[Rfam]
RNA sequence: GCAGAUCUGAAAAGCGGGCCGCGUCAGCGGCUCCACCCAAGGUGCAAGUCGUGCCCCGGGACACUCCCCCGGACUCCGUCCGGGGCCCCCAGGCGCGAUGAACCUCUCAGGUUCGAUGACAGAUGGGGAGGA
Numbered sequence: 001g002c003a004g005a006u007c008u009g010a011a012a013a014g015c016g017g018g019c020c021g022c023g024u025c026a027g028c029g030g031c032u033c034c035a036c037c038c039a040a041g042g043u044g045c046a047a048g049u050c051g052u053g054c055c056c057c058g059g060g061a062c063a064c065u066c067c068c069c070c071g072g073a074c075u076c077c078g079u080c081c082g083g084g085g086c087c088c089c090c091a092g093g094c095g096c097g098a099u100g101a102a103c104c105u106c107u108c109a110g111g112u113u114c115g116a117u118g119a120c121a122g123a124u125g126g127g128g129a130g131g132a
Stems, first nucleotide, its partner, number of pairs: 002127001005124005016033004035112003039107001042106001044104001048099008